RNA sequence: CUUCAACGACCCGAGCCACAACGGCUCACCACCCGCCCGCUCCUGACCGUACGUCGCCAGCAGCGCCUGCGCCUC
Numbered sequence: 001c002u003u004c005a006a007c008g009a010c011c012c013g014a015g016c017c018a019c020a021a022c023g024g025c026u027c028a029c030c031a032c033c034c035g036c037c038c039g040c041u042c043c044u045g046a047c048c049g050u051a052c053g054u055c056g057c058c059a060g061c062a063g064c065g066c067c068u069g070c071g072c073c074u075c
Stems, first nucleotide, its partner, number of pairs: 014026004033069001038065002043060003047056001049054001
Overview:
The family of this 75-nucleotide sequence from Streptomyces sp. MMG1121 is "ASpks TB sRNA". Rfam classes the family as an antisense RNA. Rfam 15.1 lists 9,052 matches to the family in 683 species. Lineage of the source: Bacteria > Bacillati > Actinomycetes > Streptomycetaceae > Streptomyces.